RNA sequence: UGGCGCCCAAUGUGGGGCUCCAGCACGGGGGAUACAGUGAAGGACACCGUUCGAGUGGCUGGCAGAAAGGAAAAGAAAAGAGGUAACGACGUGGGAACCUGCUGCGUCUGCACCCCUCGGGUAAGUGAACGGCGAUUAUGGGUCAAGCAUUGAGCCAAGAUAAGAUGUUUGUUGAAGGACUAGGAAAGGCUAUCAAGGCACGAGGAGUAAAGGUAAAAAUUAAGCAUUUGUGUCAGUAUUUUGAUUAUAUUAAGGAAGUUUGCCCUU
Numbered sequence: 001u002g003g004c005g006c007c008c009a010a011u012g013u014g015g016g017g018c019u020c021c022a023g024c025a026c027g028g029g030g031g032a033u034a035c036a037g038u039g040a041a042g043g044a045c046a047c048c049g050u051u052c053g054a055g056u057g058g059c060u061g062g063c064a065g066a067a068a069g070g071a072a073a074a075g076a077a078a079a080g081a082g083g084u085a086a087c088g089a090c091g092u093g094g095g096a097a098c099c100u101g102c103u104g105c106g107u108c109u110g111c112a113c114c115c116c117u118c119g120g121g122u123a124a125g126u127g128a129a130c131g132g133c134g135a136u137u138a139u140g141g142g143u144c145a146a147g148c149a150u151u152g153a154g155c156c157a158a159g160a161u162a163a164g165a166u167g168u169u170u171g172u173u174g175a176a177g178g179a180c181u182a183g184g185a186a187a188g189g190c191u192a193u194c195a196a197g198g199c200a201c202g203a204g205g206a207g208u209a210a211a212g213g214u215a216a217a218a219a220u221u222a223a224g225c226a227u228u229u230g231u232g233u234c235a236g237u238a239u240u241u242u243g244a245u246u247a248u249a250u251u252a253a254g255g256a257a258g259u260u261u262g263c264c265c266u267u
Stems, first nucleotide, its partner, number of pairs: 006031003012026003037047002080118002082115002087110001090106005126145003130142001133140002152193001154190003201243005207237002211229004252267004
Shown here is a 267-nucleotide RNA sequence from Molossus molossus, a member of the family "Mason-Pfizer monkey virus packaging signal". Taxonomically the source falls in Molossus (Eukaryota, Metazoa, Vertebrata, Mammalia). Rfam classes the family as a cis-regulatory element.